[Rfam]
RNA sequence: GGUGAUCCACACCAGUGUCUCGGACAGCGGUUCGAUUCCGCUCAGCUCCAUUCAUCUUUUAAAGCUUGGGGCUGCAAUGGUUUCGACGGGGUAUGAGGAGGGUGACUGAAACCUGCUCGGUAAGAGCAAAUCCGUAACUGCGAACAACAUCGUUCGUUUCUCCCGUCAGACAGCUCCUGUAGCUGCCUGA
Number, nucleotide and partner (000 for none) at each position: 001g107002g106003u105004g000005a103006u000007c000008c000009a000010c000011a000012c000013c000014a000015g000016u093017g092018u091019c000020u089021c088022g087023g000024a000025c000026a042027g041028c040029g039030g038031u000032u000033c000034g000035a000036u000037u000038c030039c029040g028041c027042u026043c074044a073045g072046c071047u070048c069049c068050a000051u000052u000053c000054a000055u000056c000057u000058u000059u000060u000061a000062a000063a000064g000065c000066u000067u000068g049069g048070g047071g046072c045073u044074g043075c000076a000077a000078u000079g000080g000081u000082u000083u000084c000085g000086a000087c022088g021089g020090g000091g018092u017093a016094u000095g000096a000097g000098g000099a000100g000101g000102g000103u005104g000105a003106c002107u001108g000109a000110a000111a000112c000113c000114u000115g000116c000117u000118c000119g000120g000121u000122a000123a000124g000125a000126g000127c000128a000129a000130a000131u000132c000133c000134g000135u000136a000137a000138c000139u000140g000141c000142g000143a000144a000145c000146a000147a000148c000149a000150u000151c000152g000153u000154u000155c000156g000157u000158u000159u000160c000161u000162c000163c000164c000165g000166u000167c000168a000169g000170a000171c000172a000173g000174c000175u000176c000177c000178u000179g000180u000181a000182g000183c000184u000185g000186c000187c000188u000189g000190a000
Rfam assigns this 190-nucleotide sequence from Prochlorococcus sp. AG-363-P15 to the family "permuted transfer-messenger RNA". For this family Rfam cites "BRUCE: a program for the detection of transfer-messenger RNA genes in nucleotide sequences" (Laslett et al., Nucleic Acids Res, 2002). By type it is a non-coding RNA gene. The sequence is in the family's curated seed alignment. Bacterial tmRNA, also known as 10Sa RNA or SsrA, is named for its dual tRNA and mRNA-like properties. Its role is to liberate the mRNA from a stalled ribosome. To accomplish this part of the tmRNA is used as a reading frame that ends in a translation stop signal. The broken mRNA is replaced in the ribosome by the tmRNA and translation of the tmRNA leads to addition of a proteolysis tag to the incomplete protein enabling recognition by a protease. Recently a number of permuted tmRNA genes have been found encoded in two parts. tmRNAs have been identified in eubacteria and some chloroplasts but are absent from archaeal and eukaryote nuclear genomes. The source organism's lineage runs through Bacteria, Cyanobacteriota, Cyanophyceae, Synechococcales and Prochlorococcus. Rfam links the family to the GO term RNA catabolic process.